[Rfam]
RNA sequence: UCCCCUGUAGCUCAGUUGGUAGAGCAGGUGACUGUUAAUCACCGGGUCGCAGGUUCGAGUCCUGCCGGGGGAG
Number, nucleotide and partner (000 for none) at each position: 001u072002c071003c070004c069005c068006u067007g066008u000009a000010g025011c024012u023013c022014a000015g000016u000017u000018g000019g000020u000021a000022g013023a012024g011025c010026a000027g043028g042029u041030g040031a039032c000033u000034g000035u000036u000037a000038a000039u031040c030041a029042c028043c027044g000045g000046g000047u000048c000049g065050c064051a063052g062053g061054u000055u000056c000057g000058a000059g000060u000061c053062c052063u051064g050065c049066c007067g006068g005069g004070g003071g002072a001073g000